[Rfam]
RNA sequence: UGUCAGAAACUCGUCAAAUGCAGUGCCAUCCUCUGUGGCUGGUACUGGCUCGGCUGGCUACUGCAGAAAUAGCUGUAGUUCAUGGGUCCCAGGUCUCCCUGACUGAGCUCUGGGGCCACAAGCGUUCUGCAGACGCUU
Numbered sequence: 001u002g003u004c005a006g007a008a009a010c011u012c013g014u015c016a017a018a019u020g021c022a023g024u025g026c027c028a029u030c031c032u033c034u035g036u037g038g039c040u041g042g043u044a045c046u047g048g049c050u051c052g053g054c055u056g057g058c059u060a061c062u063g064c065a066g067a068a069a070u071a072g073c074u075g076u077a078g079u080u081c082a083u084g085g086g087u088c089c090c091a092g093g094u095c096u097c098c099c100u101g102a103c104u105g106a107g108c109u110c111u112g113g114g115g116c117c118a119c120a121a122g123c124g125u126u127c128u129g130c131a132g133a134c135g136c137u138u
Base pairs, nucleotide, nucleotide: 002061005059006058021047022046023045024044025043026042027041028040030038031037075130076129077128078127080124087115088114090112091111092110
Dot-bracket structure: .(..((..............((((((((.((.....)).))))))))..........)).).............((((.(......((.(((.................))).))........)..))))........